[Rfam]
RNA sequence: ACUGGAGGAAUAAUCACACUGAGUAUGAAGAGUGAGACUCAGAUGACAGUAGCCUCCUAAAAGAAAAAGGAUGGAGAGAGCAGUCCUAGUUACAGAAAGGCAAAGGGCUGACUGUGCCAUCCGACACUU
Numbered sequence: 001a002c003u004g005g006a007g008g009a010a011u012a013a014u015c016a017c018a019c020u021g022a023g024u025a026u027g028a029a030g031a032g033u034g035a036g037a038c039u040c041a042g043a044u045g046a047c048a049g050u051a052g053c054c055u056c057c058u059a060a061a062a063g064a065a066a067a068a069g070g071a072u073g074g075a076g077a078g079a080g081c082a083g084u085c086c087u088a089g090u091u092a093c094a095g096a097a098a099g100g101c102a103a104a105g106g107g108c109u110g111a112c113u114g115u116g117c118c119a120u121c122c123g124a125c126a127c128u129u
Stems, first nucleotide, its partner, number of pairs: 003059001004057005019042001021040004026035001069122004079113002081110007091102001093100001
This 129-nucleotide RNA from Buteo japonicus belongs to the Rfam family "Small Cajal body specific RNA 4". For this family Rfam cites "Cajal body-specific small nuclear RNAs: a novel class of 2'-O-methylation and pseudouridylation guide RNAs" (Darzacq et al., EMBO J, 2002). The family's RNA type in Rfam is small Cajal body RNA. Its Rfam clan is "SCARNA4 clan". The family has 24 seed sequences and 634 matches in Rfam 15.1. Rfam describes the family as follows. scaRNAs are a specific class of small nuclear RNAs which localise to the Cajal bodies and guide the modification of RNA polymerase II transcribed spliceosomal RNAs U1, U2, U4, U5 and U12. ACA26 belongs to the H/ACA box class of guide RNAs as it has the predicted hairpin-hinge-hairpin-tail structure, conserved H/ACA-box motifs and is found associated with GAR1. Gene Ontology terms of the family: Cajal body, RNA processing and nucleolus. The family's consensus secondary structure was predicted with RNAfold.